Rfam assigns this 114-nucleotide RNA sequence from Enhydra lutris to the family "U4 spliceosomal RNA". Gene Ontology terms of the family: U4 snRNP and spliceosomal tri-snRNP complex assembly. It is annotated as a spliceosomal small nuclear RNA. U4 small nuclear RNA (U4 snRNA) is a component of the major U2-dependent spliceosome.
RNA sequence: AGCUUUGCGCAAUGGCAGUAUCGUAGCCAAUGAGGUUUAUCCGAAGCGUGAUUAUUGCUAAUAGAAAAGUUCACUGGAAGAACUUACUGGAAUGACUGAAAGUUAGUUAUUUGA
Dot-bracket structure: ...................(((((.((......((.....))...)))))))...................................(.((((((((((...)))))))))).)